Shown here is a 180-nucleotide RNA sequence from Marinococcus luteus, a member of the family "Lysine riboswitch aptamer". Gene Ontology term of the family: lysine biosynthetic process. A reference for the family is Rodionov et al. (2003), "Regulation of lysine biosynthesis and transport genes in bacteria: yet another RNA riboswitch?", Nucleic Acids Res.

[Rfam]
RNA sequence: AGUGAGGUUAGAGGCUGCGAAAACUAUUAGUACGCUUUAGGAAGAGAAUGAGCUCUGGUGAUUAAAGCGGAAAGGGGUUUUUGCCGAAGCUGCGGACGACUCAAUCGUUCAACGCUGGUCUCGUAUUGAAUAAAUGCGGGACUGUCAUACAGGUUUUCUGUAUGGAGGGCUAUCUCACGC
Numbered sequence: 001a002g003u004g005a006g007g008u009u010a011g012a013g014g015c016u017g018c019g020a021a022a023a024c025u026a027u028u029a030g031u032a033c034g035c036u037u038u039a040g041g042a043a044g045a046g047a048a049u050g051a052g053c054u055c056u057g058g059u060g061a062u063u064a065a066a067g068c069g070g071a072a073a074g075g076g077g078u079u080u081u082u083g084c085c086g087a088a089g090c091u092g093c094g095g096a097c098g099a100c101u102c103a104a105u106c107g108u109u110c111a112a113c114g115c116u117g118g119u120c121u122c123g124u125a126u127u128g129a130a131u132a133a134a135u136g137c138g139g140g141a142c143u144g145u146c147a148u149a150c151a152g153g154u155u156u157u158c159u160g161u162a163u164g165g166a167g168g169g170c171u172a173u174c175u176c177a178c179g180c
Stems, first nucleotide, its partner, number of pairs: 006175002009172003017084009033069008088116003094110006117143011145165007